Shown here is a 342-nucleotide RNA sequence from Treponema phagedenis, a member of the family "Bacterial RNase P class A". The organism belongs to Treponema, within Bacteria. Its family is annotated with tRNA processing, dimeric ribonuclease P complex and ribonuclease P activity in the Gene Ontology. It scores 254 bits against the family's covariance model.

[Rfam]
RNA sequence: AGAGGACUGAAGAUAACCGCUGCAAACAGUUGCAGAGGAAAGUCCGGACUCCUUCGGAAAUGAUGCCGGUUAACGACCGGGCGGCAAGGGCAAAAGUUCUUGCCGACAGCCAGCGCAACAGAAAGUAUACCGCCUUAGGGUAAGGGUGAAACGGCGGGGUAAGAGCCCACCUCAUUCCGGUAACGAGAAUGGAAUGGCAAGCCUCAUCAGGAGCAAAAUCAAGUAUGCAAAGGAUGUUCCGAUCCGAUAAUUUGCGGGUUGAUUGCAUAAAUUUAUAUAGUGAUGUAUAAAUAAGACAGAUGGUUAUCUUAAACAGAAUCCGGCUUAUUCGGUCCUCUGUUU
Numbered sequence: 001a002g003a004g005g006a007c008u009g010a011a012g013a014u015a016a017c018c019g020c021u022g023c024a025a026a027c028a029g030u031u032g033c034a035g036a037g038g039a040a041a042g043u044c045c046g047g048a049c050u051c052c053u054u055c056g057g058a059a060a061u062g063a064u065g066c067c068g069g070u071u072a073a074c075g076a077c078c079g080g081g082c083g084g085c086a087a088g089g090g091c092a093a094a095a096g097u098u099c100u101u102g103c104c105g106a107c108a109g110c111c112a113g114c115g116c117a118a119c120a121g122a123a124a125g126u127a128u129a130c131c132g133c134c135u136u137a138g139g140g141u142a143a144g145g146g147u148g149a150a151a152c153g154g155c156g157g158g159g160u161a162a163g164a165g166c167c168c169a170c171c172u173c174a175u176u177c178c179g180g181u182a183a184c185g186a187g188a189a190u191g192g193a194a195u196g197g198c199a200a201g202c203c204u205c206a207u208c209a210g211g212a213g214c215a216a217a218a219u220c221a222a223g224u225a226u227g228c229a230a231a232g233g234a235u236g237u238u239c240c241g242a243u244c245c246g247a248u249a250a251u252u253u254g255c256g257g258g259u260u261g262a263u264u265g266c267a268u269a270a271a272u273u274u275a276u277a278u279a280g281u282g283a284u285g286u287a288u289a290a291a292u293a294a295g296a297c298a299g300a301u302g303g304u305u306a307u308c309u310u311a312a313a314c315a316g317a318a319u320c321c322g323g324c325u326u327a328u329u330c331g332g333u334c335c336u337c338u339g340u341u342u
Base pairs, nucleotide, nucleotide: 001338002337003336004335005334006333007332008331009330010329011328012308013307014306015305016304017303018302020035021034022033023032024031025030040326041325042324044323045322046321047320048319049213050212051211052210056244057243061209062208063207064206065205066080067079068078069077070076081107082105083104084103085102086101087100088099089098090097091096108204109203113202114201115198116197130145131144132141133140134139153171154170156168157167158166172193173191174190175189176188177187178185179184217264218263219262220261227255228254229253230252231251238246272291273290274289275288276287277286278285279284